[Rfam]
The record is an 88-nucleotide RNA from Ophiophagus hannah, which matches "mir-3618 microRNA precursor family" in Rfam. It is one of the family's seed sequences.
RNA sequence: UAAGCUGAAUGCAUUGUGAUUUCCAGUAAUUGAGACAGUGAUUCUGAAAGCUGUCCACAUUAAUGAAAAGAGCAAUGUAGUCAGCUUA
Numbered sequence: 001u002a003a004g005c006u007g008a009a010u011g012c013a014u015u016g017u018g019a020u021u022u023c024c025a026g027u028a029a030u031u032g033a034g035a036c037a038g039u040g041a042u043u044c045u046g047a048a049a050g051c052u053g054u055c056c057a058c059a060u061u062a063a064u065g066a067a068a069a070g071a072g073c074a075a076u077g078u079a080g081u082c083a084g085c086u087u088a
Base pairs, nucleotide, nucleotide: 001088002087003086004085005084006083007082010079011078012077013076014075015074016073017072020069021068022067024065025064027062028061029060030059034055035054036053037052038051039050